[Rfam]
Rfam assigns this 82-nucleotide RNA from Varanus komodoensis to the family "mir-194 microRNA precursor family".
The base pairs follow the family's consensus structure, which was predicted with RNAalifold.
The organism belongs to Varanus, within Eukaryota.
RNA sequence: GGACACCCAUCGGGUGUAACAGCGACUCCAUGUGGAAGUGACACGACAUUCCACUGGGGGGGCUGUUACUUUGGAUGGGCGA
Dot-bracket structure: .........((....((((((((..(((((..(((...............))).)))))..))))))))....)).......
Numbered sequence: 001g002g003a004c005a006c007c008c009a010u011c012g013g014g015u016g017u018a019a020c021a022g023c024g025a026c027u028c029c030a031u032g033u034g035g036a037a038g039u040g041a042c043a044c045g046a047c048a049u050u051c052c053a054c055u056g057g058g059g060g061g062g063c064u065g066u067u068a069c070u071u072u073g074g075a076u077g078g079g080c081g082a
Stems, first nucleotide, its partner, number of pairs: 010075002016069008026059005033053003